This 87-nucleotide RNA sequence from Flavobacterium pygoscelis belongs to the Rfam family "Flavo-1 RNA". The match comes from Rfam's covariance-model search (69 bits). The family's consensus secondary structure is taken from published work. By type it is a small RNA.
[Rfam]
RNA sequence: UUUUAGCCCCGAUAGUAGUGAAAAUCCUUUCACUAAAGUUGCUUUUGCAACGGUAGUUAAAGAUUGUAGCGGAUAGCGGGAAAUAGC
Numbered sequence: 001u002u003u004u005a006g007c008c009c010c011g012a013u014a015g016u017a018g019u020g021a022a023a024a025u026c027c028u029u030u031c032a033c034u035a036a037a038g039u040u041g042c043u044u045u046u047g048c049a050a051c052g053g054u055a056g057u058u059a060a061a062g063a064u065u066g067u068a069g070c071g072g073a074u075a076g077c078g079g080g081a082a083a084u085a086g087c
Stems, first nucleotide, its partner, number of pairs: 009079003013075002018070002023065004029060002032057004
Dot-bracket structure: ........(((.((...((...((((..((.((((..................)))).)).))))...))...)).)))........